[Rfam]
RNA sequence: CAGCGUUCUCAGGGCGGGGUGGAAGUCCCUACCGGCGGUAUGCGCUCCGUGAGCGCGAGCCCGCGAGCGCCUUCACCGCUGCGCGGCGAAGGGUCAGCAGACCUGGUGCGAUGCCAGGGCCGACGGUCACAGUCCGGAUGAAAGAGAUCGCGU
Numbered sequence: 001c002a003g004c005g006u007u008c009u010c011a012g013g014g015c016g017g018g019g020u021g022g023a024a025g026u027c028c029c030u031a032c033c034g035g036c037g038g039u040a041u042g043c044g045c046u047c048c049g050u051g052a053g054c055g056c057g058a059g060c061c062c063g064c065g066a067g068c069g070c071c072u073u074c075a076c077c078g079c080u081g082c083g084c085g086g087c088g089a090a091g092g093g094u095c096a097g098c099a100g101a102c103c104u105g106g107u108g109c110g111a112u113g114c115c116a117g118g119g120c121c122g123a124c125g126g127u128c129a130c131a132g133u134c135c136g137g138a139u140g141a142a143a144g145a146g147a148u149c150g151c152g153u
Stems, first nucleotide, its partner, number of pairs: 003151003007147004017029003031133002033122002035064004059120002067098002102118005124136003
RNA: FMN riboswitch aptamer (RFN element)
Organism: Roseateles saccharophilus